[Rfam]
RNA sequence: AAGUGUUCCAGCUCUUUUAGAAUCUGUCCAGCAGGUUUUCUGACUUAUGCUGGAAACCCCCC
Dot-bracket structure: .................................((.((((((.(....).)))))).))...